[Rfam]
RNA sequence: GGCGGUCUUCGGUAGUGGCUGCCGGGGCAUGACCCCGGCCGCUUCGAUCGACGGCCGUC
Dot-bracket structure: (((((((.(((((...(((.(((((((.....))))))).)))...))))).)))))))
Numbered sequence: 001g002g003c004g005g006u007c008u009u010c011g012g013u014a015g016u017g018g019c020u021g022c023c024g025g026g027g028c029a030u031g032a033c034c035c036c037g038g039c040c041g042c043u044u045c046g047a048u049c050g051a052c053g054g055c056c057g058u059c
Stems, first nucleotide, its partner, number of pairs: 001059007009051005017043003021039007